[Rfam]
RNA: Small nucleolar RNA SNORD73
Organism: Nannospalax galili
RNA sequence: AAUAUGUGAUGAGAAAAUGUUUCGGUCCCAGAUGAUGCCCACUGAUAACUUUUACAUUUUCUGAUGUU
Numbered sequence: 001a002a003u004a005u006g007u008g009a010u011g012a013g014a015a016a017a018u019g020u021u022u023c024g025g026u027c028c029c030a031g032a033u034g035a036u037g038c039c040c041a042c043u044g045a046u047a048a049c050u051u052u053u054a055c056a057u058u059u060u061c062u063g064a065u066g067u068u
Stems, first nucleotide, its partner, number of pairs: 001068004